[Rfam]
RNA sequence: GAGCAAUGAUGAGCACAUUUUACGACUGACCUUUAUAGUCAUGAAGGUUUCUACACUUGACCUGAGCUCA
Numbered sequence: 001g002a003g004c005a006a007u008g009a010u011g012a013g014c015a016c017a018u019u020u021u022a023c024g025a026c027u028g029a030c031c032u033u034u035a036u037a038g039u040c041a042u043g044a045a046g047g048u049u050u051c052u053a054c055a056c057u058u059g060a061c062c063u064g065a066g067c068u069c070a
Stems, first nucleotide, its partner, number of pairs: 001069004013034001015032001018029002
Rfam assigns this 70-nucleotide sequence from Chrysochloris asiatica to the family "Small nucleolar RNA U2-30". The family's RNA type in Rfam is C/D-box small nucleolar RNA. Lineage of the source: Eukaryota > Opisthokonta > Craniata > Teleostomi > Chrysochloris.